SAH (S-adenosyl-L-homocysteine) riboswitch aptamer: a 77-nucleotide RNA sequence from Dokdonella sp. On this family, see Wang et al., Mol Cell 2008: "Riboswitches that sense S-adenosylhomocysteine and activate genes involved in coenzyme recycling".
[Rfam]
RNA sequence: UCCGCCGAGGGGCGCUGCAGCGGGUUCCCCGCGACGCUCGGCGGACAUGCAUCCCAUUGCAAGGGCGCCCGGUGGGC
Numbered sequence: 001u002c003c004g005c006c007g008a009g010g011g012g013c014g015c016u017g018c019a020g021c022g023g024g025u026u027c028c029c030c031g032c033g034a035c036g037c038u039c040g041g042c043g044g045a046c047a048u049g050c051a052u053c054c055c056a057u058u059g060c061a062a063g064g065g066c067g068c069c070c071g072g073u074g075g076g077c
Base pairs, nucleotide, nucleotide: 002044003043004042005041006040007039008038021031022030023029024028
The organism belongs to Dokdonella, within Bacteria. It scores 40 bits against the family's covariance model.